Group II catalytic intron D1-D4-3: a 172-nucleotide RNA sequence from Desulfitobacterium hafniense.

[Rfam]
RNA sequence: UCCACCGCGAGGUGGAAUCUGAAGGAAGCCAGUCGGCAAAGUUCUGACCCGAGGAACACGAACACCAUCAGGCGCGAAACGUGGGGUAAGACUGCUAAACAAGUUAAAGCCCAAAAGCUGCACGGACACGUCAGCGUAAAUGUUGCGGGUACAUGGAAUGAAAGUGAAUCGU
Dot-bracket structure: ((((((....)))))).............(.(...((...(((((((((((...........((.((....(((....(((((((((..((((........))))...))))..............)))))...)))...)).)))))))...))))))....))...).).

Its family is annotated with Group II intron splicing in the Gene Ontology. The source organism's lineage runs through Bacteria, Bacillati, Eubacteriales, Desulfitobacterium and Desulfitobacterium hafniense. Rfam's curators put it in the seed alignment.